[Rfam]
Rfam assigns this 47-nucleotide RNA sequence from Mesorhizobium denitrificans to the family "ctRNA". This family represents a group of ctRNAs (or counter-transcribed RNAs) from p42d and related plasmids. ctRNAs are small, highly structured, antisense sequences which are involved in negative regulation. Members of this family are known to bind to the mRNA of repC causing translational repression. This model contains the predicted stem-loop structure followed by a U-rich tract which is proposed to act as a Rho-independent transcriptional terminator. The base pairs follow the family's consensus structure, which is taken from published work. The family's RNA type in Rfam is antisense RNA.
Nucleotides: 047
Base pairs, nucleotide, nucleotide: 005036006035007034008033009032010031011030012029015027017025018024
Number, partner (000 for none) and nucleotide at each position: 001000a002000g003000a004000a005036g006035g007034g008033c009032u010031u011030c012029c013000a014000c015027g016000a017025c018024g019000a020000a021000a022000g023000u024018c025017g026000c027015u028000c029012g030011g031010g032009g033008g034007c035006c036005u037000u038000u039000u040000u041000c042000u043000u044000u045000u046000g047000c